RNA sequence: GCGCACUUGAAGGCGAAAAUCGUUUUGGACGGGGGUUCGAUUCCCCCCACCUCCACCAAAUGCGGGAAGGGGCGCUCGGCUGCCUUCCUCCAUCUGAAGGGGGUGACCUGGUUUCGACAGGGCGACAAGUAUCCGGAGACACACCACGUCAGGCGACCGACGUAAAUAGCGCAAAUCCAUAAUUGCAAAUGAACCGCAAUUCGUUGCUUACGGCACCUAA
Numbered sequence: 001g002c003g004c005a006c007u008u009g010a011a012g013g014c015g016a017a018a019a020u021c022g023u024u025u026u027g028g029a030c031g032g033g034g035g036u037u038c039g040a041u042u043c044c045c046c047c048c049a050c051c052u053c054c055a056c057c058a059a060a061u062g063c064g065g066g067a068a069g070g071g072g073c074g075c076u077c078g079g080c081u082g083c084c085u086u087c088c089u090c091c092a093u094c095u096g097a098a099g100g101g102g103g104u105g106a107c108c109u110g111g112u113u114u115c116g117a118c119a120g121g122g123c124g125a126c127a128a129g130u131a132u133c134c135g136g137a138g139a140c141a142c143a144c145c146a147c148g149u150c151a152g153g154c155g156a157c158c159g160a161c162g163u164a165a166a167u168a169g170c171g172c173a174a175a176u177c178c179a180u181a182a183u184u185g186c187a188a189a190u191g192a193a194c195c196g197c198a199a200u201u202c203g204u205u206g207c208u209u210a211c212g213g214c215a216c217c218u219a220a
Stems, first nucleotide, its partner, number of pairs: 001142001012134002021124003025120003031047005048105007147162004